[Rfam]
Annotation:
A member of the RNA family "mir-574 microRNA precursor family" from Pipistrellus kuhlii, 81 nucleotides long. Its Rfam clan is "mir-574 microRNA precursor clan". The family has 6 seed sequences and 4,084 matches in Rfam 15.1. The literature on the family includes a 2007 paper in Cancer Res by Lui et al., "Patterns of known and novel small RNAs in human cervical cancer". Gene Ontology terms of the family: miRNA-mediated post-transcriptional gene silencing and RISC complex. It scores 85 bits against the family's covariance model.
RNA sequence: ACACCCAAAGAGAGAGGCAGGGUCUGAUCUGCAGCCUUCAUGGCAGCUGUUGAUUAGCCAUUGCCUCUAUCUUUCUCUCCG
Numbered sequence: 001a002c003a004c005c006c007a008a009a010g011a012g013a014g015a016g017g018c019a020g021g022g023u024c025u026g027a028u029c030u031g032c033a034g035c036c037u038u039c040a041u042g043g044c045a046g047c048u049g050u051u052g053a054u055u056a057g058c059c060a061u062u063g064c065c066u067c068u069a070u071c072u073u074u075c076u077c078u079c080c081g
Stems, first nucleotide, its partner, number of pairs: 008073004013068008022059001024057006032049004